[Rfam]
RNA sequence: UCUGUUGCAUCGUACUUCUUUACAUCGCCAUACUGGUAUUUCAAAGAGCUAUGGAAUGUAAAGAAGUAUGUAGUUACUGA
Number, nucleotide and partner (000 for none) at each position: 001u000002c000003u000004g000005u000006u000007g074008c073009a000010u000011c070012g069013u068014a067015c066016u065017u064018c063019u062020u061021u060022a059023c058024a057025u056026c000027g000028c054029c053030a052031u051032a050033c000034u000035g000036g000037u000038a000039u000040u000041u000042c000043a000044a000045a000046g000047a000048g000049c000050u032051a031052u030053g029054g028055a000056a025057u024058g023059u022060a021061a020062a019063g018064a017065a016066g015067u014068a013069u012070g011071u000072a000073g008074u007075u000076a000077c000078u000079g000080a000
mir-1 microRNA precursor family: an 80-nucleotide sequence from Ascaris suum. The sequence is in the family's curated seed alignment. The source organism's lineage runs through Eukaryota, Metazoa, Nematoda, Rhabditida and Ascaris. About the family: This family represents the microRNA (miRNA) mir-1 family. miRNAs are transcribed as ~70nt precursors (modelled here) and subsequently processed by the Dicer enzyme to give a ~22nt product. In this case the mature sequence comes from the 3' arm of the precursor. The base pairs follow the family's consensus structure, which was predicted with RNAalifold.